[Rfam]
RNA sequence: CACAUCGUAUGACAACGAGAGAGAGCACGCUUGUAUACAACCAUGUCCUCCCCAUGAAUGCUGACAAGCGUGCUCUCUCUCGUUGUCAACCAAUG
Dot-bracket structure: .........(((((.((..((.(.((((((((((.............................)))))))))).).))..)).))))).......
RNA: MIR535 microRNA precursor family
Organism: Tripterygium wilfordii